Mammalian CPEB3 ribozyme: a 72-nucleotide RNA from Alligator mississippiensis. About the family: The mammalian CPEB3 ribozyme is a self cleaving RNA located in the second intron of the CPEB3 gene which belongs to a family of genes regulating messenger RNA polyadenylation. It scores 44 bits against the family's covariance model. Taxonomically the source falls in Alligator (Eukaryota, Eumetazoa, Archelosauria, Alligatoridae).
RNA sequence: UGAGAGUUCUAGGCCACAGCAGAAGCACUCACAGCGUGGCAGGCAGAUUCCAAUGAAGCUGCAAAUUCUGCU
Numbered sequence: 001u002g003a004g005a006g007u008u009c010u011a012g013g014c015c016a017c018a019g020c021a022g023a024a025g026c027a028c029u030c031a032c033a034g035c036g037u038g039g040c041a042g043g044c045a046g047a048u049u050c051c052a053a054u055g056a057a058g059c060u061g062c063a064a065a066u067u068c069u070g071c072u
Base pairs, nucleotide, nucleotide: 013040014039015038018072019071020070021069022068023067024066025037026036044061045060046059048057049056050055